[Rfam]
RNA: Mammalian CPEB3 ribozyme
Organism: Parnassius apollo
RNA sequence: UACAUUUCAUUGGGGGUCAUUGUAGAAGCGUGCUCGUCGCGACCCCUGCCAGCCCUUUUCCGGGCUGCAAUUCUACA
Numbered sequence: 001u002a003c004a005u006u007u008c009a010u011u012g013g014g015g016g017u018c019a020u021u022g023u024a025g026a027a028g029c030g031u032g033c034u035c036g037u038c039g040c041g042a043c044c045c046c047u048g049c050c051a052g053c054c055c056u057u058u059u060c061c062g063g064g065c066u067g068c069a070a071u072u073c074u075a076c077a
Stems, first nucleotide, its partner, number of pairs: 013046006021077007028040003050067006